[Rfam]
RNA: Yersinia sRNA 155(RyfD)
RNA sequence: CAAGACGAUCCGGUACGGAUAACUGACGCUCUACAUAAUUAAGGUCAUUAACCUUGAAUAAUUGAGGGAUGACCUCAUUUAAUCUCCAGUAGCAAUUUUGACCUGUUAUGGGAGGAGUUAUGCGUCUGGAUCGUCUUAC
Numbered sequence: 001c002a003a004g005a006c007g008a009u010c011c012g013g014u015a016c017g018g019a020u021a022a023c024u025g026a027c028g029c030u031c032u033a034c035a036u037a038a039u040u041a042a043g044g045u046c047a048u049u050a051a052c053c054u055u056g057a058a059u060a061a062u063u064g065a066g067g068g069a070u071g072a073c074c075u076c077a078u079u080u081a082a083u084c085u086c087c088a089g090u091a092g093c094a095a096u097u098u099u100g101a102c103c104u105g106u107u108a109u110g111g112g113a114g115g116a117g118u119u120a121u122g123c124g125u126c127u128g129g130a131u132c133g134u135c136u137u138a139c
Stems, first nucleotide, its partner, number of pairs: 002137011015125003019121001021119003028045003032041002052067006068079004083115005089109003